[Rfam]
RNA sequence: UUUAACGACGACUCACUCAACUUGGUGGUGAUGGUUUCUCACAGUCGUCACAACCUCCUUGAGUGAGUCAUUGAAGAG
Numbered sequence: 001u002u003u004a005a006c007g008a009c010g011a012c013u014c015a016c017u018c019a020a021c022u023u024g025g026u027g028g029u030g031a032u033g034g035u036u037u038c039u040c041a042c043a044g045u046c047g048u049c050a051c052a053a054c055c056u057c058c059u060u061g062a063g064u065g066a067g068u069c070a071u072u073g074a075a076g077a078g
Stems, first nucleotide, its partner, number of pairs: 010068001012067009024055002028051006
RNA: mir-67 microRNA precursor family